The family of this 108-nucleotide RNA from Phenylobacterium soli is "TPP riboswitch aptamer (THI element)".
A reference for the family is Thore et al. (2008), "Structural basis of thiamine pyrophosphate analogues binding to the eukaryotic riboswitch", J Am Chem Soc.

RNA sequence: CGCCGAUCCUCGGGGGGCCGCGCGCGAGCGGCUGAGAGGUGGGUGAGCCCACGACCCGUCGAACCUGAUCCGGGUCAUGCCGGCGAAGGGAAGGGCCCAUCCUCCUCC
Numbered sequence: 001c002g003c004c005g006a007u008c009c010u011c012g013g014g015g016g017g018c019c020g021c022g023c024g025c026g027a028g029c030g031g032c033u034g035a036g037a038g039g040u041g042g043g044u045g046a047g048c049c050c051a052c053g054a055c056c057c058g059u060c061g062a063a064c065c066u067g068a069u070c071c072g073g074g075u076c077a078u079g080c081c082g083g084c085g086a087a088g089g090g091a092a093g094g095g096c097c098c099a100u101c102c103u104c105c106u107c108c
Base pairs, nucleotide, nucleotide: 007095008094009093010092011058012057013056014055017032018031019030020029021028039052040051041050042049043048064089065088066087070083071082072081073080
Overview:
Its family is annotated with thiamine pyrophosphate binding in the Gene Ontology. The organism belongs to Phenylobacterium, within Bacteria.